RNA sequence: GCGCAGGCCUUGCCCAGUGGUUACUUCGAGUUCCCAUGUUUCAGCAACUUUCGCACCACGGGCGCAAACCUGCGUUUUU
Numbered sequence: 001g002c003g004c005a006g007g008c009c010u011u012g013c014c015c016a017g018u019g020g021u022u023a024c025u026u027c028g029a030g031u032u033c034c035c036a037u038g039u040u041u042c043a044g045c046a047a048c049u050u051u052c053g054c055a056c057c058a059c060g061g062g063c064g065c066a067a068a069c070c071u072g073c074g075u076u077u078u079u
Base pairs, nucleotide, nucleotide: 002074003073004072005071006070007069012063013062014061015060017059018058019057020056025055027053028052029051